The record is a 119-nucleotide sequence from Colocasia esculenta, which matches "MIR6450 microRNA precursor family" in Rfam.
[Rfam]
RNA sequence: GGGACCGAAUUAUUUCGGUCCCAAAUAUAGAGACCGAAAUAAUUCGGUCCCUAUUCGGUUGCCGAAUAGGGACCGAAUUAAAUCGGUCUCUAUAUUUGGGACCGAAAUAUUUCGGUCCC
Numbered sequence: 001g002g003g004a005c006c007g008a009a010u011u012a013u014u015u016c017g018g019u020c021c022c023a024a025a026u027a028u029a030g031a032g033a034c035c036g037a038a039a040u041a042a043u044u045c046g047g048u049c050c051c052u053a054u055u056c057g058g059u060u061g062c063c064g065a066a067u068a069g070g071g072a073c074c075g076a077a078u079u080a081a082a083u084c085g086g087u088c089u090c091u092a093u094a095u096u097u098g099g100g101a102c103c104g105a106a107a108u109a110u111u112u113c114g115g116u117c118c119c
Stems, first nucleotide, its partner, number of pairs: 001119009013107012029091009043077016
Its family is annotated with RISC complex and miRNA-mediated post-transcriptional gene silencing in the Gene Ontology. It scores 74 bits against the family's covariance model. Rfam 15.1 lists 53 matches to the family in 7 species.